Rfam assigns this 124-nucleotide RNA from Phenylobacterium glaciei to the family "Caulobacter sRNA CrfA". The base pairs follow the family's consensus structure. The literature on the family includes a 2008 paper in Mol Microbiol by Landt et al., "Small non-coding RNAs in Caulobacter crescentus". Taxonomically the source falls in Phenylobacterium (Bacteria, Pseudomonadota, Alphaproteobacteria, Caulobacteraceae). The match comes from Rfam's covariance-model search (60 bits). Rfam 15.1 lists 41 matches to the family in 41 species.

RNA sequence: GAGAGACAUGGCGACAUUAGUUCGACAGUCUCCGGCGUUUCGGGGAGGAAACGCCCGCUUAAUAAGAGCUCCGGCUCAAAAUAAGGCCCGUUGCGAUUAUCCCCCGCAACGGGCCAAAUUUUUG
Numbered sequence: 001g002a003g004a005g006a007c008a009u010g011g012c013g014a015c016a017u018u019a020g021u022u023c024g025a026c027a028g029u030c031u032c033c034g035g036c037g038u039u040u041c042g043g044g045g046a047g048g049a050a051a052c053g054c055c056c057g058c059u060u061a062a063u064a065a066g067a068g069c070u071c072c073g074g075c076u077c078a079a080a081a082u083a084a085g086g087c088c089c090g091u092u093g094c095g096a097u098u099a100u101c102c103c104c105c106g107c108a109a110c111g112g113g114c115c116a117a118a119u120u121u122u123u124g
Stems, first nucleotide, its partner, number of pairs: 001033001003032005034055008060124003065121001066077004084119001085115011